[Rfam]
RNA sequence: CUUACAGAGUUCAUUGGCAUUCUGUCCACCUCCUGAUCUUAAUUUCUUUCACUUGUCAUCUUUCAUGGAGGUGGGCAUACUGCCAACAGUGCUCUGUUGG
Numbered sequence: 001c002u003u004a005c006a007g008a009g010u011u012c013a014u015u016g017g018c019a020u021u022c023u024g025u026c027c028a029c030c031u032c033c034u035g036a037u038c039u040u041a042a043u044u045u046c047u048u049u050c051a052c053u054u055g056u057c058a059u060c061u062u063u064c065a066u067g068g069a070g071g072u073g074g075g076c077a078u079a080c081u082g083c084c085a086a087c088a089g090u091g092c093u094c095u096g097u098u099g100g
Stems, first nucleotide, its partner, number of pairs: 014086006023077011

A member of the RNA family "MIR394 microRNA precursor family" from Corchorus olitorius, 100 nucleotides long.
NCBI's taxonomy places the organism under Eukaryota, Embryophyta, Pentapetalae, Malvales, Corchorus.
Gene Ontology terms of the family: miRNA-mediated post-transcriptional gene silencing and RISC complex.
A reference for the family is Jones-Rhoades and Bartel (2004), "Computational identification of plant microRNAs and their targets, including a stress-induced miRNA", Mol Cell.
The base pairs follow the family's consensus structure, which was predicted with WAR.
It scores 90 bits against the family's covariance model.